[Rfam]
Small nucleolar RNA SNORA48: a 142-nucleotide sequence from Mus spicilegus. Pairs were carried over by alignment from the consensus structure, which was predicted with RNAalifold. The source organism's lineage runs through Eukaryota, Bilateria, Rodentia, Myomorpha and Mus. On this family, see Ofengand and Bakin, J Mol Biol 1997: "Mapping to nucleotide resolution of pseudouridine residues in large subunit ribosomal RNAs from representative eukaryotes, prokaryotes, archaebacteria, mitochondria and chloroplasts". It scores 52 bits against the family's covariance model. By type it is an H/ACA-box small nucleolar RNA. Rfam describes the family as follows. The snoRNA ACA 48 has been identified to guide pseudouridylation of the residue U3797 in the 28S rRNA subunit.
RNA sequence: CCCCUCCAUAUUGGACAGAAAGACACCUUGUUGGUGGUGGUGUUCUUAUAUCAGUCAGGGGCAGAGCAGAUGGUAGUCCUUUGUUCAUCCUUGCUUGAUGCAUGACUUGGUGGCCAAAGGUGUUUUAUGCCUGGAUACAUAA
Numbered sequence: 001c002c003c004c005u006c007c008a009u010a011u012u013g014g015a016c017a018g019a020a021a022g023a024c025a026c027c028u029u030g031u032u033g034g035u036g037g038u039g040g041u042g043u044u045c046u047u048a049u050a051u052c053a054g055u056c057a058g059g060g061g062c063a064g065a066g067c068a069g070a071u072g073g074u075a076g077u078c079c080u081u082u083g084u085u086c087a088u089c090c091u092u093g094c095u096u097g098a099u100g101c102a103u104g105a106c107u108u109g110g111u112g113g114c115c116a117a118a119g120g121u122g123u124u125u126u127a128u129g130c131c132u133g134g135a136u137a138c139a140u141a142a
Stems, first nucleotide, its partner, number of pairs: 001061005011054004018047002022041001024039004082137006097131001099129001103127003108122002111119001